[Rfam]
Nucleotides: 107
Base pairs, nucleotide, nucleotide: 004105005104006103007102008100009099012096013095014094017093018092023088026084028082029081
Number, partner (000 for none) and nucleotide at each position: 001000u002000a003000a004105u005104c006103u007102g008100u009099u010000u011000a012096g013095a014094c015000a016000g017093a018092u019000c020000c021000u022000c023088a024000u025000u026084u027000a028082g029081u030000c031000a032000u033000g034000a035000c036000a037000g038000a039000c040000u041000c042000a043000c044000a045000c046000c047000u048000a049000a050000c051000u052000g053000c054000u055000c056000a057000a058000a059000a060000u061000c062000a063000c064000c065000c066000a067000c068000u069000a070000c071000u072000a073000u074000g075000u076000a077000a078000a079000u080000a081029a082028u083000a084026a085000c086000u087000u088023u089000u090000u091000g092018a093017u094014g095013u096012u097000u098000u099009a100008a101000u102007u103006g104005g105004a106000g107000u

The family of this 107-nucleotide RNA sequence from Populus deltoides is "MIR480 microRNA precursor family".
For this family Rfam cites "Novel and mechanical stress-responsive MicroRNAs in Populus trichocarpa that are absent from Arabidopsis" (Lu et al., Plant Cell, 2005).
Its family is annotated with RISC complex and miRNA-mediated post-transcriptional gene silencing in the Gene Ontology.
The base pairs follow the family's consensus structure, which was predicted with WAR.
The match comes from Rfam's covariance-model search (62 bits).